[Rfam]
Nucleotides: 139
Stems, first nucleotide, its partner, number of pairs: 001021007032048004055136003082096002104118005
Number, partner (000 for none) and nucleotide at each position: 001021u002020c003019c004018c005017g006016g007015u008000c009000u010000c011000c012000a013000a014000a015007g016006c017005c018004g019003g020002g021001a022000a023000u024000a025000c026000u027000g028000a029000a030000g031000a032048g033047g034046c035045a036000c037000a038000c039000c040000u041000u042000c043000c044000u045035u046034g047033c048032c049000c050000c051000a052000a053000g054000u055136g056135c057134g058000g059000c060000g061000g062000g063000u064000u065000c066000a067000a068000g069000c070000c071000c072000u073000c074000c075000a076000c077000g078000c079000c080000a081000a082096g083095g084000c085000a086000g087000a088000c089000a090000u091000a092000g093000a094000g095083c096082c097000g098000g099000u100000g101000a102000c103000g104118c105117g106116c107115g108114u109000c110000c111000u112000u113000c114108g115107c116106g117105c118104g119000g120000c121000u122000c123000g124000c125000c126000g127000g128000u129000c130000a131000a132000g133000c134057c135056g136055u137000c138000g139000c

Description:
Shown here is a 139-nucleotide RNA sequence from Plantimonas leprariae, a member of the family "speF leader". Its family is annotated with regulation of gene expression in the Gene Ontology. Lineage of the source: Bacteria > Pseudomonadota > Alphaproteobacteria > Aurantimonadaceae > Plantimonas. Rfam's curators write: This family is a putative regulatory RNA structure that is found upstream of the speF gene encoding ornithine decarboxylase in Agrobacterium tumefaciens and other alpha-proteobacteria.